Rfam assigns this 96-nucleotide sequence from Wuhan insect virus 20 to the family "Luteovirus cap-independent translation element (BTE)". The literature on the family includes a 2004 paper in Virology by Shen and Miller, "Subgenomic RNA as a riboregulator: negative regulation of RNA replication by Barley yellow dwarf virus subgenomic RNA 2". It is annotated as a cis-regulatory element. This family represents the Luteovirus cap-independent translation element (BTE) as found in barley yellow dwarf virus (BYDV), bean leafroll virus and soybean dwarf virus. This family mediates translation of genomic (gRNA) and subgenomic RNA1 (sgRNA1). It scores 60 bits against the family's covariance model.
RNA sequence: AUACUGGAACUCACACUCGAAUCCUGGGAAACAGGCAGUCUUCGGACGUAAGCUCGGGCGGACUUGUCACCCGCCGCCGCAUUGUGUGUGAUGGUA
Numbered sequence: 001a002u003a004c005u006g007g008a009a010c011u012c013a014c015a016c017u018c019g020a021a022u023c024c025u026g027g028g029a030a031a032c033a034g035g036c037a038g039u040c041u042u043c044g045g046a047c048g049u050a051a052g053c054u055c056g057g058g059c060g061g062a063c064u065u066g067u068c069a070c071c072c073g074c075c076g077c078c079g080c081a082u083u084g085u086g087u088g089u090g091a092u093g094g095u096a
Stems, first nucleotide, its partner, number of pairs: 004094003011091006018084003023035004038047003052080002057075005